[Rfam]
Nucleotides: 062
Stems, first nucleotide, its partner, number of pairs: 034059011
Number, partner (000 for none) and nucleotide at each position: 001000u002000a003000g004000u005000g006000u007000u008000a009000c010000a011000g012000c013000u014000c015000u016000u017000u018000u019000a020000g021000g022000a023000u024000u025000u026000g027000c028000c029000u030000a031000g032000c033000a034059g035058g036057u037056u038055u039054u040053u041052c042051g043050g044049u045000u046000u047000u048000u049044a050043c051042u052041g053040g054039a055038a056037a057036g058035c059034c060000c061000c062000g

Source information
The family of this 62-nucleotide sequence from Rhinopithecus roxellana is "U7 small nuclear RNA". A search with the family's covariance model found it, with a score of 67 bits. The base pairs follow the family's consensus structure, which was predicted with PFOLD. About the family: Animal histone pre-mRNAs are spliced by a different mechanism than nuclear pre-mRNAs and self-splicing introns.